[Rfam]
RNA: Vault RNA
Organism: Parambassis ranga
RNA sequence: GCGCUGGUACAGCUCAGUGGUUACUUCUUCACGUAACUUCACUGCAAGUUUAACUGAUCUCUGUCCCGGUCGCGGGAUCGAACCACGGGCGCUGCCCAGCGUUUUU
Number, nucleotide and partner (000 for none) at each position: 001g000002c101003g100004c099005u098006g097007g096008u000009a000010c000011a000012g090013c089014u088015c087016a000017g086018u085019g084020g083021u000022u000023a000024c000025u082026u081027c080028u000029u000030c000031a000032c000033g000034u000035a000036a000037c000038u000039u000040c000041a000042c000043u000044g000045c000046a000047a000048g000049u000050u000051u000052a000053a000054c000055u000056g000057a000058u000059c000060u000061c000062u000063g000064u000065c000066c000067c000068g000069g000070u000071c000072g000073c000074g000075g000076g000077a000078u000079c000080g027081a026082a025083c020084c019085a018086c017087g015088g014089g013090c012091g000092c000093u000094g000095c000096c007097c006098a005099g004100c003101g002102u000103u000104u000105u000106u000